Source information
The record is a 285-nucleotide RNA sequence from Streptomyces olivochromogenes, which matches "Streptomyces sRNA 4677" in Rfam. A reference for the family is Hindra et al. (2014), "Complex intra-operonic dynamics mediated by a small RNA in Streptomyces coelicolor", PLoS One. The organism belongs to Streptomyces, within Bacteria.
[Rfam]
RNA sequence: UGUUCCGGUGCGGCCGACGCUCUUCCCCAAGAAGCACGGGGAGAAAGGAACCCCACCAAGCCCCACCCCUCCCGCCCGCCGAAACGGUGACCGCCGCGCAAACUCACUCCCGCGAGUGAAUAUGCCCAACUCGGGUGGAUUCGGGGCCGGUUGCCUGCCUUACGCUCAGCGCGACAGAACACGACCGCAGACAUGCGGCAGACAUGCGGCAGACAAUGCGACGGCCCCCGCCGGGACUAGCGAUCCCUGCGAGGGCCUGACCAUCGAGGAAGUAGGAGCUUCCCG
Numbered sequence: 001u002g003u004u005c006c007g008g009u010g011c012g013g014c015c016g017a018c019g020c021u022c023u024u025c026c027c028c029a030a031g032a033a034g035c036a037c038g039g040g041g042a043g044a045a046a047g048g049a050a051c052c053c054c055a056c057c058a059a060g061c062c063c064c065a066c067c068c069c070u071c072c073c074g075c076c077c078g079c080c081g082a083a084a085c086g087g088u089g090a091c092c093g094c095c096g097c098g099c100a101a102a103c104u105c106a107c108u109c110c111c112g113c114g115a116g117u118g119a120a121u122a123u124g125c126c127c128a129a130c131u132c133g134g135g136u137g138g139a140u141u142c143g144g145g146g147c148c149g150g151u152u153g154c155c156u157g158c159c160u161u162a163c164g165c166u167c168a169g170c171g172c173g174a175c176a177g178a179a180c181a182c183g184a185c186c187g188c189a190g191a192c193a194u195g196c197g198g199c200a201g202a203c204a205u206g207c208g209g210c211a212g213a214c215a216a217u218g219c220g221a222c223g224g225c226c227c228c229c230g231c232c233g234g235g236a237c238u239a240g241c242g243a244u245c246c247c248u249g250c251g252a253g254g255g256c257c258u259g260a261c262c263a264u265c266g267a268g269g270a271a272g273u274a275g276g277a278g279c280u281u282c283c284c285g
Stems, first nucleotide, its partner, number of pairs: 007265004016091001018089004104119006134186002136168003223257005229251003233247004268283005
The family's RNA type in Rfam is small RNA. Located in the intergenic region between anti-sigma factor SCO4677 gene and a putative regulatory protein gene SCO4676. scr4677 expression requires the SCO4677 activity and scr4677 sRNA itself seem to affect the levels of the SCO4676-associated transcripts.